[Rfam]
This 64-nucleotide RNA sequence from Phoenix dactylifera belongs to the Rfam family "Small nucleolar RNA U49". The base pairs follow the family's consensus structure, which was predicted with CMfinder. The source organism's lineage runs through Eukaryota, Streptophyta, Euphyllophyta, Liliopsida and Phoenix. Rfam classes the family as a C/D-box small nucleolar RNA. A search with the family's covariance model found it, with a score of 50 bits.

RNA sequence: UCCUGAUGAGGAGGAAUGACCUCAUGAUAGGAAGUGCCGUAUGACACUUAACAGCAGCUGUUUC
Numbered sequence: 001u002c003c004u005g006a007u008g009a010g011g012a013g014g015a016a017u018g019a020c021c022u023c024a025u026g027a028u029a030g031g032a033a034g035u036g037c038c039g040u041a042u043g044a045c046a047c048u049u050a051a052c053a054g055c056a057g058c059u060g061u062u063u064c
Base pairs, nucleotide, nucleotide: 013058032049033048034047035046036045